This 360-nucleotide RNA sequence from Viridibacillus arenosi belongs to the Rfam family "transfer-messenger RNA". The base pairs follow the family's consensus structure, which is taken from published work. A reference for the family is Williams (2002), "The tmRNA Website: invasion by an intron", Nucleic Acids Res. The match comes from Rfam's covariance-model search (184 bits). It is annotated as a non-coding RNA gene.
RNA sequence: GGGGACGUUACGGAUUCGACAGGGAUGGUCUGAGCUUGAGUUGCGCGUCGGAGGUCUCGGCUUCGUCAUCAACGGAAGUUAUAUAAUAACUGGCAAACAACAAAACAACUUAGCUUUCGCAGCGUAAGCUGAUGAAACUGCCUGUCUAUUCUAUCGCCCAUGUAGCAUAGCUCAGGCUCACUUAUAGUGGGAUACGGUUACUAGUGCCACUUGAGCUAGUAACAAGAGCUUCCCAAGUUAGCGCUCACGAUGCCUGCUUGCUGGCUAAUGAUGCGUGAAUCCUAAAUAGGCAAGAUACACGCGUAGAAGCUUGAGUAUUGGAGUUUCUGGACGCGGGUUCGACUCCCGCCGUCUCCAUAU
Dot-bracket structure: (((((((............(((((((..(..(.(((((((((.((((((((((.[[[...)))))........]]]......................................((((.(((......)))..))))..(((((.((((.((((..[[[[[)))).))))..))))).........]]]]].....(((((((((...[.[[..)))))))))............]].].(((((((....(((..[[[...)))...))).))))...............]]]....)))))....))))))))).).)..)))))))...(((((.......))))))))))))....